[Rfam]
Rfam assigns this 91-nucleotide RNA from Gossypium hirsutum to the family "Small nucleolar RNA Z122". The match comes from Rfam's covariance-model search (44 bits). A reference for the family is Chen et al. (2003), "The high diversity of snoRNAs in plants: identification and comparative study of 120 snoRNA genes from Oryza sativa", Nucleic Acids Res. The base pairs follow the family's consensus structure, which was predicted with PFOLD. Rfam classes the family as a C/D-box small nucleolar RNA. Lineage of the source: Eukaryota > Magnoliopsida > Gunneridae > Pentapetalae > Gossypium. The family has 23 seed sequences and 822 matches in Rfam 15.1.

RNA sequence: AUUGGGAAAUGAUGACAGCUUAAUUGCUGGAUAGUAUCUGAGCAAAGCUUUGAAGAUUUUUUUUCCUUUUGCACGUCAGUCUGAUUCGAAC
Numbered sequence: 001a002u003u004g005g006g007a008a009a010u011g012a013u014g015a016c017a018g019c020u021u022a023a024u025u026g027c028u029g030g031a032u033a034g035u036a037u038c039u040g041a042g043c044a045a046a047g048c049u050u051u052g053a054a055g056a057u058u059u060u061u062u063u064u065c066c067u068u069u070u071g072c073a074c075g076u077c078a079g080u081c082u083g084a085u086u087c088g089a090a091c
Stems, first nucleotide, its partner, number of pairs: 002090002005087003